[Rfam]
RNA sequence: CACGUGCUCCGGGGUCGGUGAAAAUCCGAGCCGGCGGUGACAGUCCGCGACCCGAUCGAGACCCCUGCCCGGGGAAUCGAGCGGUUGACCUGGUGAAACUCCGGGACCGACGGUGAAAGUCCGGAUGGGAGGAGCAACGU
Numbered sequence: 001c002a003c004g005u006g007c008u009c010c011g012g013g014g015u016c017g018g019u020g021a022a023a024a025u026c027c028g029a030g031c032c033g034g035c036g037g038u039g040a041c042a043g044u045c046c047g048c049g050a051c052c053c054g055a056u057c058g059a060g061a062c063c064c065c066u067g068c069c070c071g072g073g074g075a076a077u078c079g080a081g082c083g084g085u086u087g088a089c090c091u092g093g094u095g096a097a098a099c100u101c102c103g104g105g106a107c108c109g110a111c112g113g114u115g116a117a118a119g120u121c122c123g124g125a126u127g128g129g130a131g132g133a134g135c136a137a138c139g140u
Base pairs, nucleotide, nucleotide: 005136006135007134008133009132010131016028017027018026030120031119032109033108034048035047036046037045043107044106052084053083089105090104091103092102093101111123112122113121

This 140-nucleotide sequence from Pengzhenrongella sicca belongs to the Rfam family "FMN riboswitch aptamer (RFN element)".
Rfam 15.1 lists 6,230 matches to the family in 5,120 species.
Rfam describes the family as follows. The RFN element is a highly conserved domain that is found frequently in the 5'-untranslated regions of prokaryotic mRNAs that encode for flavin mononucleotide (FMN) biosynthesis and transport proteins.
The source organism's lineage runs through Bacteria, Bacillati, Actinomycetes, Micrococcales and Pengzhenrongella.
A search with the family's covariance model found it, with a score of 89 bits.
Rfam links the family to the GO term FMN binding.